[Rfam]
RNA sequence: GAAAGCAUUUGGAUUUAUGGCAUGCCCAAUUCCCCUGGGCAUUUCAUAGUGUCCCAUGAGCAAACUAUGACCCUCAAUCACUGCCUGGCCUCUAUGCCGGUAGGCUACUGGUACUGAAGUGGCUUGCACAAAG
Number, nucleotide and partner (000 for none) at each position: 001g055002a000003a000004a000005g054006c000007a052008u051009u000010u000011g000012g000013a000014u000015u049016u048017a047018u046019g045020g044021c000022a042023u041024g040025c038026c037027c000028a000029a000030u000031u000032c000033c000034c000035c000036u000037g026038g025039g000040c024041a023042u022043u000044u020045c019046a018047u017048a016049g015050u000051g008052u007053c000054c005055c001056a000057u000058g000059a000060g000061c000062a000063a000064a000065c000066u000067a000068u126069g125070a124071c000072c122073c121074u000075c000076a000077a000078u000079c116080a115081c000082u000083g000084c111085c110086u107087g106088g105089c104090c103091u102092c000093u000094a000095u000096g000097c000098c000099g000100g000101u000102a091103g090104g089105c088106u087107a086108c000109u000110g085111g084112u000113a000114c000115u080116g079117a000118a000119g000120u000121g073122g072123c000124u070125u069126g068127c000128a000129c000130a000131a000132a000133g000
This 133-nucleotide RNA sequence from Sciurus carolinensis belongs to the Rfam family "Small nucleolar RNA SNORA42/SNORA80 family". Pairs were carried over by alignment from the consensus structure, which was predicted with RNAalifold. The source organism's lineage runs through Eukaryota, Metazoa, Eumetazoa, Craniata and Sciurus. From the family's description: The members of this family belong to the H/ACA class of snoRNAs that guide the sites of modification of uridines to pseudouridines. Human ACA42 (SNORA42) was cloned from HeLa cells by immunoprecipitation with anti-GAR1 antibody. Its is predicted to guide the pseudouridylation of residues U109 and U572 of 18S rRNA. ACA42 shares the same host gene with ACA26, ACA46, ACA50. This family also includes mammalian snoRNA ACA67 (SNORA80) which was identified by computational screening and its expression in mouse experimentally verified by Northern blot and primer extension analysis. ACA67 is proposed to guide the pseudouridylation of the same 18S rRNA residues as ACA42.